The record is a 171-nucleotide RNA sequence from Paenibacillus sp. OAS669, which matches "Group II catalytic intron D1-D4-3" in Rfam.
The literature on the family includes a 2001 paper in EMBO J by Chu et al., "Control of branch-site choice by a group II intron".
It scores 124 bits against the family's covariance model.

RNA sequence: UCGACCGCGAGGUCGAAUCUGAAGGAAGCCGGAGGCAAAUGCACGGACCAAGGUACACGAACCCAAUUCGAGGCAGUGUUAGUCGGAUGAGUCUCCUUGACAAGACGAAAUCCGAAGCCGCCAAGGACUGACGCUGUAAACUUGGGUGGUCGCGGGCAGACAGAUGGCGUU
Numbered sequence: 001u002c003g004a005c006c007g008c009g010a011g012g013u014c015g016a017a018u019c020u021g022a023a024g025g026a027a028g029c030c031g032g033a034g035g036c037a038a039a040u041g042c043a044c045g046g047a048c049c050a051a052g053g054u055a056c057a058c059g060a061a062c063c064c065a066a067u068u069c070g071a072g073g074c075a076g077u078g079u080u081a082g083u084c085g086g087a088u089g090a091g092u093c094u095c096c097u098u099g100a101c102a103a104g105a106c107g108a109a110a111u112c113c114g115a116a117g118c119c120g121c122c123a124a125g126g127a128c129u130g131a132c133g134c135u136g137u138a139a140a141c142u143u144g145g146g147u148g149g150u151c152g153c154g155g156g157c158a159g160a161c162a163g164a165u166g167g168c169g170u171u
Stems, first nucleotide, its partner, number of pairs: 001016006028171001030169002036163001040158003044154002046151005062146005067140001073137003077133007085113004091106004